[Rfam]
RNA sequence: AGUUGCCUGGAACUUGCGUUGAGUGUUCAUAAUUGAACCUACACUAAUUGCAAGGGAAUUUGAACUCAUUCGCUAUGUCAAGCCUCCUUUGAGUGGAAGACAGAAUGGAUGAUAGAAUGCCCACCUAUCCGUUGAUAGGGCGUCAAUUAUAGCUUGACGGAGUUUCGGGCAAUUU
Numbered sequence: 001a002g003u004u005g006c007c008u009g010g011a012a013c014u015u016g017c018g019u020u021g022a023g024u025g026u027u028c029a030u031a032a033u034u035g036a037a038c039c040u041a042c043a044c045u046a047a048u049u050g051c052a053a054g055g056g057a058a059u060u061u062g063a064a065c066u067c068a069u070u071c072g073c074u075a076u077g078u079c080a081a082g083c084c085u086c087c088u089u090u091g092a093g094u095g096g097a098a099g100a101c102a103g104a105a106u107g108g109a110u111g112a113u114a115g116a117a118u119g120c121c122c123a124c125c126u127a128u129c130c131g132u133u134g135a136u137a138g139g140g141c142g143u144c145a146a147u148u149a150u151a152g153c154u155u156g157a158c159g160g161a162g163u164u165u166c167g168g169g170c171a172a173u174u175u
Stems, first nucleotide, its partner, number of pairs: 002173014017159003030149007038140002054122003058118004063113001066112007078100002083096002086093001

This 175-nucleotide sequence from [Eubacterium] infirmum belongs to the Rfam family "6S / SsrS RNA". The family's RNA type in Rfam is non-coding RNA gene. A search with the family's covariance model found it, with a score of 72 bits. Pairs were carried over by alignment from the consensus structure, which is taken from published work. Rfam's curators write: E. coli 6S RNA was the first non coding RNA to be sequenced, but its function was unknown until recently.